[Rfam]
RNA sequence: CAGCUCUGGUUCCUCUGCAUCCACCGAGAAAUUCUUUCGCCUUUUACUAAAGAUUUCCGUGCAGAGGAACGUUUAUGAGUAUACGCCAAUUUUUGGAGUCCCAGCUUCGGCUAGGGAC
Numbered sequence: 001c002a003g004c005u006c007u008g009g010u011u012c013c014u015c016u017g018c019a020u021c022c023a024c025c026g027a028g029a030a031a032u033u034c035u036u037u038c039g040c041c042u043u044u045u046a047c048u049a050a051a052g053a054u055u056u057c058c059g060u061g062c063a064g065a066g067g068a069a070c071g072u073u074u075a076u077g078a079g080u081a082u083a084c085g086c087c088a089a090u091u092u093u094u095g096g097a098g099u100c101c102c103a104g105c106u107u108c109g110g111c112u113a114g115g116g117a118c
Stems, first nucleotide, its partner, number of pairs: 003080004009070011030056002033053005099117004104112001
A member of the RNA family "U5 spliceosomal RNA", 118 nucleotides long. About the family: U5 RNA is a component of both types of known spliceosome. The precise function of this molecule is unknown, though it is known that the 5' loop is required for splice site selection and p220 binding, and that both the 3' stem-loop and the Sm site are important for Sm protein binding and cap methylation. The family has 180 seed sequences and 28,527 matches in Rfam 15.1. On this family, see Zwieb, Nucleic Acids Res 1997: "The uRNA database".